[Rfam]
RNA: mir-216 microRNA precursor family
Organism: Alligator mississippiensis
Nucleotides: 076
Stems, first nucleotide, its partner, number of pairs: 003074001005072003010067008020058002023054002026051005
Number, partner (000 for none) and nucleotide at each position: 001000a002000g003074a004000c005072u006071g007070g008000g009000a010067a011066a012065u013064c014063u015062c016061u017060a018000c019000a020058g021057g022000c023054a024053a025000a026051u027050g028049u029048g030047a031000u032000g033000u034000c035000u036000u037000u038000a039000u040000a041000g042000u043000a044000a045000u046000c047030u048029c049028a050027c051026a052000a053024u054023u055000a056000c057021c058020u059000a060017u061016a062015g063014a064013g065012a066011u067010u068000c069000u070007u071006c072005a073000a074003u075000c076000u